A member of the RNA family "SAM-I/IV (S-adenosyl methionine) riboswitch aptamer", 94 nucleotides long. Pairs were carried over by alignment from the consensus structure, which is taken from published work. The family is grouped with related families in Rfam's "SAM clan".
RNA sequence: ACAUAGCAUCAAGAGUAGGACUUGUUCCUCACCAACCUGCAACUCCAAAGCAAGGUGGUCAAUAGAUGCGGCAAUCGCAAACAAUUGGAGAACA
Numbered sequence: 001a002c003a004u005a006g007c008a009u010c011a012a013g014a015g016u017a018g019g020a021c022u023u024g025u026u027c028c029u030c031a032c033c034a035a036c037c038u039g040c041a042a043c044u045c046c047a048a049a050g051c052a053a054g055g056u057g058g059u060c061a062a063u064a065g066a067u068g069c070g071g072c073a074a075u076c077g078c079a080a081a082c083a084a085u086u087g088g089a090g091a092a093c094a
Base pairs, nucleotide, nucleotide: 006069007068008067009066010065015030017029018028019027020026031059032058033057036055037054038053039051040050043090044089045088046087047086071078072077